Overview
This 94-nucleotide RNA from Malaciobacter halophilus belongs to the Rfam family "Selenocysteine transfer RNA". The organism belongs to Malaciobacter, within Bacteria. For this family Rfam cites "tRNAscan-SE: a program for improved detection of transfer RNA genes in genomic sequence" (Lowe and Eddy, Nucleic Acids Res, 1997).
[Rfam]
RNA sequence: GGGAGGUAUGUGUUCCUGGUGGACGCCACGGGCUUCAACCCCGAUGUCUGGGCUAGUGUUAGUCUGGAGGUAGGUUCGAUUCCUACACCUUCUC
Number, nucleotide and partner (000 for none) at each position: 001g093002g092003g091004a090005g089006g088007u087008a000009u000010g026011u025012g024013u023014u022015c000016c021017u000018g000019g000020u000021g016022g014023a013024c012025g011026c010027c000028a000029c043030g042031g041032g040033c000034u000035u000036c000037a000038a000039c000040c032041c031042c030043g029044a000045u000046g000047u068048c067049u066050g065051g064052g063053c062054u000055a000056g000057u000058g000059u000060u000061a000062g053063u052064c051065u050066g049067g048068a047069g000070g000071u085072a084073g083074g082075u000076u000077c000078g000079a000080u000081u000082c074083c073084u072085a071086c000087a007088c006089c005090u004091u003092c002093u001094c000